[Rfam]
RNA: Xanthomonadaceae sRNA asX1
RNA sequence: CACCUGGUGUGGCACUGCGCCUGCAUGGCGCAAACGGCUGGAAUUGGAACAGGGGCCAGCCAUGCGCACCCCGGGGUAGCACGGGGCCGGUAGUCGGGGGACUGCCGGCCCUUUUUCU
Numbered sequence: 001c002a003c004c005u006g007g008u009g010u011g012g013c014a015c016u017g018c019g020c021c022u023g024c025a026u027g028g029c030g031c032a033a034a035c036g037g038c039u040g041g042a043a044u045u046g047g048a049a050c051a052g053g054g055g056c057c058a059g060c061c062a063u064g065c066g067c068a069c070c071c072c073g074g075g076g077u078a079g080c081a082c083g084g085g086g087c088c089g090g091u092a093g094u095c096g097g098g099g100g101a102c103u104g105c106c107g108g109c110c111c112u113u114u115u116u117c118u
Base pairs, nucleotide, nucleotide: 003075004074005073006072007071009069010068011067012065013064016032017031018030019029036061037060038059039058040057041056044053045052083112084111085110086109087108088107089106090105091104092103093102094101095100